[Rfam]
RNA sequence: UUCCACUCCAAUUUCAAAAAGCUCUUUCUACAGCUCUCCCCAAGCUUUCCUAUAUUAUCAAAAUGUCUCCCUGCUCUUGCAACUGCUGCAGCGGCAACUGCUCUAGCUGCUCCUGCUCUUCCUGCAGCGUAAGUGGUC
Numbered sequence: 001u002u003c004c005a006c007u008c009c010a011a012u013u014u015c016a017a018a019a020a021g022c023u024c025u026u027u028c029u030a031c032a033g034c035u036c037u038c039c040c041c042a043a044g045c046u047u048u049c050c051u052a053u054a055u056u057a058u059c060a061a062a063a064u065g066u067c068u069c070c071c072u073g074c075u076c077u078u079g080c081a082a083c084u085g086c087u088g089c090a091g092c093g094g095c096a097a098c099u100g101c102u103c104u105a106g107c108u109g110c111u112c113c114u115g116c117u118c119u120u121c122c123u124g125c126a127g128c129g130u131a132a133g134u135g136g137u138c
Base pairs, nucleotide, nucleotide: 072096073095074094075093079089080088081087100125101124109116110115
The record is a 138-nucleotide RNA from Aspergillus bertholletiae, which matches "A. fumigatus sRNA Afu_254" in Rfam. Lineage of the source: Eukaryota > Fungi > Dikarya > Aspergillaceae > Aspergillus subgen. Circumdati. It scores 64 bits against the family's covariance model. Pairs were carried over by alignment from the consensus structure, which was predicted with WAR.